Rfam assigns this 126-nucleotide RNA sequence from Microthlaspi erraticum to the family "MIR394 microRNA precursor family".
It scores 78 bits against the family's covariance model.
RNA sequence: CUUACAGAUUUCUUUGGCAUUCUGUCCACCUCCUCUACACACAUAUAUGUAUGUGCAUGUACGUGUAUGUAUACGUGGUGUGUGUGGACAAGGGAGGUGGUCAUACUGUCAAUAGGCAUCUGUUAG
Numbered sequence: 001c002u003u004a005c006a007g008a009u010u011u012c013u014u015u016g017g018c019a020u021u022c023u024g025u026c027c028a029c030c031u032c033c034u035c036u037a038c039a040c041a042c043a044u045a046u047a048u049g050u051a052u053g054u055g056c057a058u059g060u061a062c063g064u065g066u067a068u069g070u071a072u073a074c075g076u077g078g079u080g081u082g083u084g085u086g087g088a089c090a091a092g093g094g095a096g097g098u099g100g101u102c103a104u105a106c107u108g109u110c111a112a113u114a115g116g117c118a119u120c121u122g123u124u125a126g
Base pairs, nucleotide, nucleotide: 011116014112015111016110017109018108019107023103024102026100027099028098029097030096031095032094033093